[Rfam]
RNA sequence: AAUUUUCUGAGGUAUUCGUCAGCUUCAAUUUUGAACCUACAUUAUAAAAACGGGAGAUUUAUAUUUAAUUACGGAUUCCGGGCUCUACAACCGAGGAGAGGGAAGAAGUAAUUGUGCGAUCACCCACCUAUCGAGAGAUAGGUGUCAAAACUGAGGCAACGGUGUCUUGGAUACAAG
Numbered sequence: 001a002a003u004u005u006u007c008u009g010a011g012g013u014a015u016u017c018g019u020c021a022g023c024u025u026c027a028a029u030u031u032u033g034a035a036c037c038u039a040c041a042u043u044a045u046a047a048a049a050a051c052g053g054g055a056g057a058u059u060u061a062u063a064u065u066u067a068a069u070u071a072c073g074g075a076u077u078c079c080g081g082g083c084u085c086u087a088c089a090a091c092c093g094a095g096g097a098g099a100g101g102g103a104a105g106a107a108g109u110a111a112u113u114g115u116g117c118g119a120u121c122a123c124c125c126a127c128c129u130a131u132c133g134a135g136a137g138a139u140a141g142g143u144g145u146c147a148a149a150a151c152u153g154a155g156g157c158a159a160c161g162g163u164g165u166c167u168u169g170g171a172u173a174c175a176a177g
Stems, first nucleotide, its partner, number of pairs: 004173001006171010017161003032147003035143003052125003056121004063115001066114007078102002083098004
Rfam assigns this 177-nucleotide RNA from Hydrogenispora ethanolica to the family "6S / SsrS RNA". Rfam describes the family as follows. E. coli 6S RNA was the first non coding RNA to be sequenced, but its function was unknown until recently. It consists of 184 nucleotides that fold into an extended hairpin structure with a large single-stranded internal bulge. NCBI's taxonomy places the organism under Bacteria, Bacillati, Bacillota, Hydrogenispora.